A member of the RNA family "Small nucleolar RNA R12" from Lupinus albus, 74 nucleotides long. From the family's description: snoR12 is a C/D box small nucleolar RNA, which acts as a methylation guide for 25S ribosomal RNA in plants. snoR12 has been alternatively named snoZ44 in Arabidopsis and snoZ131 in rice. Gene Ontology terms of the family: RNA processing and nucleolus. The family has 9 seed sequences and 992 matches in Rfam 15.1.

[Rfam]
RNA sequence: UGUUGAAUGAUGAUAGCAAUCAUUCGGAUUCCCAAUGAUAAUAUAUAUGAUCUCACAAUCAAUUUCUGACAACA
Numbered sequence: 001u002g003u004u005g006a007a008u009g010a011u012g013a014u015a016g017c018a019a020u021c022a023u024u025c026g027g028a029u030u031c032c033c034a035a036u037g038a039u040a041a042u043a044u045a046u047a048u049g050a051u052c053u054c055a056c057a058a059u060c061a062a063u064u065u066c067u068g069a070c071a072a073c074a
Stems, first nucleotide, its partner, number of pairs: 001074005

The literature on the family includes a 2003 paper in Nucleic Acids Res by Chen et al., "The high diversity of snoRNAs in plants: identification and comparative study of 120 snoRNA genes from Oryza sativa". The organism belongs to Lupinus, within Eukaryota. Pairs were carried over by alignment from the consensus structure, which was predicted with PFOLD. The match comes from Rfam's covariance-model search (47 bits).